[Rfam]
RNA sequence: CUCUUAUUAAGAGAGGUGGAGGGAAGUGCCCUAUGAAGCCCGGCAACCGUCACAGUUUGUGAUAUGGUGCCAAUUCACACAAAGUGUAAACUUUGGAAGAUGAGAG
Numbered sequence: 001c002u003c004u005u006a007u008u009a010a011g012a013g014a015g016g017u018g019g020a021g022g023g024a025a026g027u028g029c030c031c032u033a034u035g036a037a038g039c040c041c042g043g044c045a046a047c048c049g050u051c052a053c054a055g056u057u058u059g060u061g062a063u064a065u066g067g068u069g070c071c072a073a074u075u076c077a078c079a080c081a082a083a084g085u086g087u088a089a090a091c092u093u094u095g096g097a098a099g100a101u102g103a104g105a106g
Base pairs, nucleotide, nucleotide: 001106002105003104004103005102006101007100008099013041015040016039017038021031022030023029026078027077028076042071043070044069045068047067048066049063050062051061052060075098080095081094082093083092084091085090
SAM riboswitch aptamer (S box leader): a 106-nucleotide RNA sequence from Rummeliibacillus stabekisii.
The source organism's lineage runs through Bacteria, Bacillati, Caryophanales, Caryophanaceae and Rummeliibacillus.
The family's consensus secondary structure is taken from published work.